[Rfam]
RNA sequence: CUCACGCGGGCUGGCGGUCCCUCGGCUUGACCCCGAUGGCCCGAUCCGGUGUCCAUUCCCAUGGACAAUGCCCGCGGCGGAGCAACCGGAACAAGGACUUAU
Numbered sequence: 001c002u003c004a005c006g007c008g009g010g011c012u013g014g015c016g017g018u019c020c021c022u023c024g025g026c027u028u029g030a031c032c033c034c035g036a037u038g039g040c041c042c043g044a045u046c047c048g049g050u051g052u053c054c055a056u057u058c059c060c061a062u063g064g065a066c067a068a069u070g071c072c073c074g075c076g077g078c079g080g081a082g083c084a085a086c087c088g089g090a091a092c093a094a095g096g097a098c099u100u101a102u
Stems, first nucleotide, its partner, number of pairs: 001079001003077001005076007015043002023035003051066006
RNA: rpsB sRNA
Organism: Azospirillum thermophilum